[Rfam]
RNA sequence: AUCCCUGGGGACCUUGUUAAAAUGCAGAUUCUGAUUCAGGUGGUCUUGGGUGAGAUCUGAGAUUCUGCAUUUCUAACAAGCUCCCAUGUGAUACUGA
Numbered sequence: 001a002u003c004c005c006u007g008g009g010g011a012c013c014u015u016g017u018u019a020a021a022a023u024g025c026a027g028a029u030u031c032u033g034a035u036u037c038a039g040g041u042g043g044u045c046u047u048g049g050g051u052g053a054g055a056u057c058u059g060a061g062a063u064u065c066u067g068c069a070u071u072u073c074u075a076a077c078a079a080g081c082u083c084c085c086a087u088g089u090g091a092u093a094c095u096g097a
Stems, first nucleotide, its partner, number of pairs: 003090001004088001008084003013080007020072003024068005030062003
Rfam assigns this 97-nucleotide sequence from Vulpes vulpes to the family "mir-544 microRNA precursor family". Lineage of the source: Eukaryota > Craniata > Sarcopterygii > Caniformia > Vulpes. For this family Rfam cites "Mammalian microRNAs: experimental evaluation of novel and previously annotated genes" (Chiang et al., Genes Dev, 2010). Rfam links the family to the GO terms RISC complex and miRNA-mediated post-transcriptional gene silencing. Rfam 15.1 lists 10,750 matches to the family in 132 species.